RNA sequence: UCACAAUGGGAUGUUGAUCGUUAAUAAGUGAUGUUGUCUGUCAUCUUGGUCAAUGAAAACAAAAAUUCAUUUCAUCUUUCAUUGAAUUAACAUCCCAUCAAAACAUGACAUGUAACAGUUAUCAUCC
Numbered sequence: 001u002c003a004c005a006a007u008g009g010g011a012u013g014u015u016g017a018u019c020g021u022u023a024a025u026a027a028g029u030g031a032u033g034u035u036g037u038c039u040g041u042c043a044u045c046u047u048g049g050u051c052a053a054u055g056a057a058a059a060c061a062a063a064a065a066u067u068c069a070u071u072u073c074a075u076c077u078u079u080c081a082u083u084g085a086a087u088u089a090a091c092a093u094c095c096c097a098u099c100a101a102a103a104c105a106u107g108a109c110a111u112g113u114a115a116c117a118g119u120u121a122u123c124a125u126c127c
Stems, first nucleotide, its partner, number of pairs: 020116004024111002031106002034103002037100001039097002
MIR1520 microRNA precursor family: a 127-nucleotide sequence from Glycine soja. The source organism's lineage runs through Eukaryota, Streptophytina, fabids, Fabales and Glycine subgen. Soja. The family's consensus secondary structure was predicted with RNAalifold. Rfam links the family to the GO terms RISC complex and miRNA-mediated post-transcriptional gene silencing.